Notes
The family of this 61-nucleotide sequence from Arabidopsis lyrata is "Plastid-psbN 5UTR RNA". It scores 59 bits against the family's covariance model. Plastid psbN is a non-coding RNA (ncRNA) recognised in plastids. It was reported as a conserved 11 stem-loop in the prime untranslated region (5UTR) of psbN genes. It has been reported that the motif is retained in a subset of mature transcripts in barley, which can suggests a possible role in transcript alternative 5 prime processing. By type it is a cis-regulatory element. The literature on the family includes a 2023 paper in Plant Commun by Richter et al., "Retrograde signaling in plants: A critical review focusing on the GUN pathway and beyond".

[Rfam]
RNA sequence: UGCAACACCCAUCAAAGGGUUCGUUCCCCAUUUUUGAGCUAAUUCACCAUAUUUUGAAUUC
Numbered sequence: 001u002g003c004a005a006c007a008c009c010c011a012u013c014a015a016a017g018g019g020u021u022c023g024u025u026c027c028c029c030a031u032u033u034u035u036g037a038g039c040u041a042a043u044u045c046a047c048c049a050u051a052u053u054u055u056g057a058a059u060u061c
Stems, first nucleotide, its partner, number of pairs: 017045005023039004